[Rfam]
RNA: mir-1301 microRNA precursor family
RNA sequence: GGAUUGGGGGGUUCACUCUAGGCACUGUCACGCUGUGCUGGGGAUGUUGCAGCUGCCUGGGAGAGACUUCCCACAGUCC
Numbered sequence: 001g002g003a004u005u006g007g008g009g010g011g012u013u014c015a016c017u018c019u020a021g022g023c024a025c026u027g028u029c030a031c032g033c034u035g036u037g038c039u040g041g042g043g044a045u046g047u048u049g050c051a052g053c054u055g056c057c058u059g060g061g062a063g064a065g066a067c068u069u070c071c072c073a074c075a076g077u078c079c
Base pairs, nucleotide, nucleotide: 001079002078003077004076005075006074007072009070010069011068013066014065016063017062018061019059020058021057022056023055024054025052027050028049030047031046032045033043034042